[Rfam]
RNA sequence: GGGCUGGCUUUAGCUCAGCGGUUCCUUCGCAUCGAACUCUUCAGUUCACAAGCCACCGCGAUGGUGGUUCGAGACCCGCGGGUGCUCUCCAGCCCUUUU
Numbered sequence: 001g002g003g004c005u006g007g008c009u010u011u012a013g014c015u016c017a018g019c020g021g022u023u024c025c026u027u028c029g030c031a032u033c034g035a036a037c038u039c040u041u042c043a044g045u046u047c048a049c050a051a052g053c054c055a056c057c058g059c060g061a062u063g064g065u066g067g068u069u070c071g072a073g074a075c076c077c078g079c080g081g082g083u084g085c086u087c088u089c090c091a092g093c094c095c096u097u098u099u
Stems, first nucleotide, its partner, number of pairs: 002094006013083004018079004026073004